[Rfam]
RNA sequence: CAAUGAAGGAAGCAUAGUAAUGUGCAUAGAAAUUGAAUUGGAUCUCUAGGCCUGCCCUCUCUGAUGUCAUUUGGCUUUGAUUUGGGGCAUGGUCCCACAGCAAAACA
Numbered sequence: 001c002a003a004u005g006a007a008g009g010a011a012g013c014a015u016a017g018u019a020a021u022g023u024g025c026a027u028a029g030a031a032a033u034u035g036a037a038u039u040g041g042a043u044c045u046c047u048a049g050g051c052c053u054g055c056c057c058u059c060u061c062u063g064a065u066g067u068c069a070u071u072u073g074g075c076u077u078u079g080a081u082u083u084g085g086g087g088c089a090u091g092g093u094c095c096c097a098c099a100g101c102a103a104a105a106c107a
Base pairs, nucleotide, nucleotide: 012025013024014023015022040090043087044086050081052079054075055074056073

A member of the RNA family "Small nucleolar RNA snoR100" from Rhododendron williamsianum, 107 nucleotides long. Its family is annotated with nucleolus and RNA processing in the Gene Ontology. By type it is an H/ACA-box small nucleolar RNA. The family's consensus secondary structure was predicted with WAR. A reference for the family is Marker et al. (2002), "Experimental RNomics: identification of 140 candidates for small non-messenger RNAs in the plant Arabidopsis thaliana", Curr Biol.